Rfam assigns this 189-nucleotide RNA to the family "Manganese Mn2+ riboswitch aptamer (yybP-ykoY)".
The pairing is the family consensus, mapped onto this sequence.
On this family, see Dambach et al., Mol Cell 2015: "The ubiquitous yybP-ykoY riboswitch is a manganese-responsive regulatory element".
RNA sequence: GCGCCCGUCGUUGGGGAGUAGCCGAUUUCUGCCACAGGCAGAAAUGUACAUGUCAACAUACUCGUUAUAUCCGCUCCUGAGAUUAACGUGGCAUGUACGCCUCAGAGUUCUGAGUAGGCGAGACCAUAGGCACGCGCCAUCGUAAAGUUGGGGAUGGUUUGCGUGUAUAUGGAUAUCCCCAACUGAGGC
Dot-bracket structure: .........................((..............))..((((((((((.......(((((................)))))))))))))))(((((((.............................................................................)))))))